Rfam assigns this 73-nucleotide RNA sequence from Cnephaeus nilssonii to the family "mir-3116 microRNA precursor family". Lineage of the source: Eukaryota > Eumetazoa > Gnathostomata > Dipnotetrapodomorpha > Cnephaeus.
[Rfam]
RNA sequence: UAUUGAGCAUCUACUAUAUGCCUGGCACUGUUGUGGGCUCUGGCAGUGCCAGGCAUAUAGUAGAUGCUCAAUA
Numbered sequence: 001u002a003u004u005g006a007g008c009a010u011c012u013a014c015u016a017u018a019u020g021c022c023u024g025g026c027a028c029u030g031u032u033g034u035g036g037g038c039u040c041u042g043g044c045a046g047u048g049c050c051a052g053g054c055a056u057a058u059a060g061u062a063g064a065u066g067c068u069c070a071a072u073a
Stems, first nucleotide, its partner, number of pairs: 001073033